[Rfam]
RNA sequence: CCAAAGGCUCUUUUAAGAGCCACCCAUGUUAUCUAUUGGAGAGUG
Dot-bracket structure: .....((((((....))))))........................

Rfam assigns this 45-nucleotide RNA from Sinocyclocheilus anshuiensis to the family "Histone 3' UTR stem-loop". It scores 39 bits against the family's covariance model. It is annotated as a cis-regulatory element. The mRNAs of metazoan histone genes lack a poly-A tail. 3' end processing occurs at a site between a highly conserved stem-loop (modelled by this family) and a purine rich region around 20 nts downstream (the histone downstream element, or HDE). The stem-loop is bound by a 31 kDa stem-loop binding protein (SLBP - also termed the histone hairpin binding protein, or HBP). Together with U7 snRNA binding of the HDE, SLBP binding nucleate s the formation of the processing complex. The histone 3' UTR stem-loop is also involved in nucleocytoplasmic transport of the mRNA, and in stability regulation and translation efficiency in the cytoplasm. Lineage of the source: Eukaryota > Osteoglossocephalai > Cypriniformes > Cyprininae > Sinocyclocheilus.